[Rfam]
RNA: raiA RNA
RNA sequence: AUGUUUCAGGUCUGUGGUUGCAAGUCCAAGCCAGACGCAGGCUAAAGGAUCCACGUAAGUUAACACUAAAAAUUGGGUUAAUGAUCAUGGUGCGUCUUAGAUGUAAGACCUACCGGUAUUAAAAUCGAGAUGGUUAGUAGUGAGGCAAACCCGAGCGAAAGCUGCAGUAGGCGAGUGUGGGGUCAAAGACCAGGUCAGCUGAAACAA
Numbered sequence: 001a002u003g004u005u006u007c008a009g010g011u012c013u014g015u016g017g018u019u020g021c022a023a024g025u026c027c028a029a030g031c032c033a034g035a036c037g038c039a040g041g042c043u044a045a046a047g048g049a050u051c052c053a054c055g056u057a058a059g060u061u062a063a064c065a066c067u068a069a070a071a072a073u074u075g076g077g078u079u080a081a082u083g084a085u086c087a088u089g090g091u092g093c094g095u096c097u098u099a100g101a102u103g104u105a106a107g108a109c110c111u112a113c114c115g116g117u118a119u120u121a122a123a124a125u126c127g128a129g130a131u132g133g134u135u136a137g138u139a140g141u142g143a144g145g146c147a148a149a150c151c152c153g154a155g156c157g158a159a160a161g162c163u164g165c166a167g168u169a170g171g172c173g174a175g176u177g178u179g180g181g182g183u184c185a186a187a188g189a190c191c192a193g194g195u196c197a198g199c200u201g202a203a204a205c206a207a
Base pairs, nucleotide, nucleotide: 002206003205004204005203006202007201008200009199012198013197014196015192016191017190018189019188028178030176031041033097034096035095036094037093038092039091050090051089055085058082060080062078064076088185109171110170111169112168113167114127115126116125117124131164132163133162134161140156141155